[Rfam]
RNA sequence: UGGGACCUACGGGGCCCUCAAUCACAGACGGGCCCCGGUCACCUGCCGGGCAACGGCCCGCACAGCAACGGAAGACAGAAA
Numbered sequence: 001u002g003g004g005a006c007c008u009a010c011g012g013g014g015c016c017c018u019c020a021a022u023c024a025c026a027g028a029c030g031g032g033c034c035c036c037g038g039u040c041a042c043c044u045g046c047c048g049g050g051c052a053a054c055g056g057c058c059c060g061c062a063c064a065g066c067a068a069c070g071g072a073a074g075a076c077a078g079a080a081a
Stems, first nucleotide, its partner, number of pairs: 002017003006014003029060005
A member of the RNA family "L2-Alphaproteobacteria ribosomal protein leader" from Pseudoroseicyclus tamaricis, 81 nucleotides long. The source organism's lineage runs through Bacteria, Alphaproteobacteria, Rhodobacterales, Paracoccaceae and Pseudoroseicyclus. Rfam classes the family as a cis-regulatory leader. For this family Rfam cites "Discovery of 20 novel ribosomal leader candidates in bacteria and archaea" (Eckert and Weinberg, BMC Microbiol, 2020). Pairs were carried over by alignment from the consensus structure, which is taken from published work. The match comes from Rfam's covariance-model search (52 bits).